[Rfam]
RNA sequence: AAGCUAACAACGCAAAGCUAGCAAGCUAGCAACGCAAAGCUAGCAAGCUAGCAACGCAAAGCUAGUAAAGCUACCAAC
Number, nucleotide and partner (000 for none) at each position: 001a000002a000003g000004c000005u000006a000007a000008c000009a000010a000011c000012g035013c034014a000015a000016a000017g030018c029019u028020a027021g026022c000023a000024a000025g000026c021027u020028a019029g018030c017031a000032a000033c000034g013035c012036a000037a000038a072039g071040c070041u069042a000043g000044c000045a066046a063047g062048c061049u000050a000051g057052c056053a000054a000055c000056g052057c051058a000059a000060a000061g048062c047063u046064a000065g000066u045067a000068a000069a041070g040071c039072u038073a000074c000075c000076a000077a000078c000

The record is a 78-nucleotide sequence, which matches "c-di-GMP-I riboswitch aptamer" in Rfam. From the family's description: GEMM was predicted in a large-scale screen for bacterial structured RNA regulatory elements. A reference for the family is Weinberg et al. (2007), "Identification of 22 candidate structured RNAs in bacteria using the CMfinder comparative genomics pipeline", Nucleic Acids Res. Pairs were carried over by alignment from the consensus structure, which is taken from published work.